mir-1290 microRNA precursor family: a 76-nucleotide RNA from Propithecus coquereli.

[Rfam]
RNA sequence: GAGUGUCAUGUUGGCACUCAGAAAGUUUUGGAUUUUGGAGCAUUUCAGAUUUCAGAUUUUUGGAUUAGGGAUACUC
Numbered sequence: 001g002a003g004u005g006u007c008a009u010g011u012u013g014g015c016a017c018u019c020a021g022a023a024a025g026u027u028u029u030g031g032a033u034u035u036u037g038g039a040g041c042a043u044u045u046c047a048g049a050u051u052u053c054a055g056a057u058u059u060u061u062g063g064a065u066u067a068g069g070g071a072u073a074c075u076c
Stems, first nucleotide, its partner, number of pairs: 001076007011068004018063007027056006034049006
Its family is annotated with miRNA-mediated post-transcriptional gene silencing and RISC complex in the Gene Ontology. Rfam 15.1 lists 68 matches to the family in 28 species.